This 112-nucleotide RNA from Crassaminicella thermophila belongs to the Rfam family "SAM riboswitch aptamer (S box leader)".
The source organism's lineage runs through Bacteria, Bacillati, Clostridia, Clostridiaceae and Crassaminicella.
It scores 108 bits against the family's covariance model.
RNA sequence: UUUUCAUCAAGAGAGAUGGAGGGACUGGCCCUAUGAAAUCUCGGCAACCUUCAAAUGUUAAGUUUGAAAAGGUGCCAAUUCCAGCAGAACAAUUUGUUCUGACAGAUGAAAA
Dot-bracket structure: ((((((((....(((((...(((.[[[[)))......)))))((((.((((((((.......))))))..))))))...(]]]]((((((.....))))))..)))))))))
The SAM riboswitch is found upstream of a number of genes which code for proteins involved in methionine or cysteine biosynthesis in Gram-positive bacteria.